[Rfam]
RNA sequence: AUCCUUCGGGUCUGUGGUUGCAAGCCGAGGCCAGUCGCAGGCGAAACGGUCCACGUAAUCUGUCCAAAGCGGCAGGGAGCAUGGUGCGGUCUAGAAGUAAGUCCGUCCGGGAGCGAUCCCGAGAGAAGCGCGUGAGGGCGUGAGCAACGCAGAGCAACCUUCCAGGCGGCGUGUGUGGGGGCAAAGACCAGGUCAGCCGGAGGAA
Dot-bracket structure: .((((((((..((((((((........(.([..((((((.]........((.......(...(.......)...)......[))))))))............((((((((((....)))))...((((...((.....(((.....)))....))...))))..)))))....).)......]..)))))...))))))))))).
Rfam assigns this 205-nucleotide sequence to the family "raiA RNA".
Rfam's curators put it in the seed alignment.
Pairs were carried over by alignment from the consensus structure, which is taken from published work.